[Rfam]
RNA: TPP riboswitch aptamer (THI element)
RNA sequence: AAAUUAGACUAGGGGUGCCGAUCAAAUCGGCUGAGAUAAAGAUGUGUUCUUUGACCCUUUACCUGAUCUGGAUAAUGCCAGCGUAGGGAAGUUAGGCCAUUUAUUU
Numbered sequence: 001a002a003a004u005u006a007g008a009c010u011a012g013g014g015g016u017g018c019c020g021a022u023c024a025a026a027u028c029g030g031c032u033g034a035g036a037u038a039a040a041g042a043u044g045u046g047u048u049c050u051u052u053g054a055c056c057c058u059u060u061a062c063c064u065g066a067u068c069u070g071g072a073u074a075a076u077g078c079c080a081g082c083g084u085a086g087g088g089a090a091g092u093u094a095g096g097c098c099a100u101u102u103a104u105u106u
Stems, first nucleotide, its partner, number of pairs: 007093004011058004017031005038052005062087004068081004